The record is a 136-nucleotide RNA from Vallitalea guaymasensis, which matches "Ribosomal protein L20 leader" in Rfam. A search with the family's covariance model found it, with a score of 63 bits. The family's consensus secondary structure was predicted with CMfinder. By type it is a cis-regulatory leader. This family is a putative r-protein leader autoregulatory structure found in B. subtilis and other low-GC Gram-positive bacteria. It is located in the 5' untranslated regions of mRNAs encoding initiation factor 3 followed by ribosomal proteins L35 and L20 (infC-rpmI-rplT). NCBI's taxonomy places the organism under Bacteria, Bacillati, Clostridia, Vallitaleaceae, Vallitalea.
RNA sequence: UAAAAUAAGUAGAAGUAUCCACUUCUCACCUUAGGGUAAUAAAGCUACUAGGGUAAAAUACGUAAAAGAUGGAUGAAUUCAUUGUUUAUGUAAUGUAUAUGAGUGGGUAUUUUAAUACGCGCUUUUUUUAUUGUAU
Numbered sequence: 001u002a003a004a005a006u007a008a009g010u011a012g013a014a015g016u017a018u019c020c021a022c023u024u025c026u027c028a029c030c031u032u033a034g035g036g037u038a039a040u041a042a043a044g045c046u047a048c049u050a051g052g053g054u055a056a057a058a059u060a061c062g063u064a065a066a067a068g069a070u071g072g073a074u075g076a077a078u079u080c081a082u083u084g085u086u087u088a089u090g091u092a093a094u095g096u097a098u099a100u101g102a103g104u105g106g107g108u109a110u111u112u113u114a115a116u117a118c119g120c121g122c123u124u125u126u127u128u129u130a131u132u133g134u135a136u
Stems, first nucleotide, its partner, number of pairs: 011026006028054003033049002036045002102123004107118004